[Rfam]
RNA: mir-3689 microRNA precursor family
Organism: Rhinopithecus roxellana
RNA sequence: GGGGGAUGUGACCCCGCGCCCGCUGGGGGGUGUGCUCCCGUGCUCCCUGGGGGCUGUGACCCCGCACUCCCU
Numbered sequence: 001g002g003g004g005g006a007u008g009u010g011a012c013c014c015c016g017c018g019c020c021c022g023c024u025g026g027g028g029g030g031u032g033u034g035c036u037c038c039c040g041u042g043c044u045c046c047c048u049g050g051g052g053g054c055u056g057u058g059a060c061c062c063c064g065c066a067c068u069c070c071c072u
Stems, first nucleotide, its partner, number of pairs: 001071005015058004020053002023050007031042004